[Rfam]
RNA: Chlorobi-RRM RNA
RNA sequence: AAUUCAGUCAAUGGUUGGCUGAUCGCUAUUCAAGUAAUUUGUGCUUUGGUUACUUGCCGGUAUCUCUCCCUAU
Numbered sequence: 001a002a003u004u005c006a007g008u009c010a011a012u013g014g015u016u017g018g019c020u021g022a023u024c025g026c027u028a029u030u031c032a033a034g035u036a037a038u039u040u041g042u043g044c045u046u047u048g049g050u051u052a053c054u055u056g057c058c059g060g061u062a063u064c065u066c067u068c069c070c071u072a073u
Stems, first nucleotide, its partner, number of pairs: 004022008025061003031056009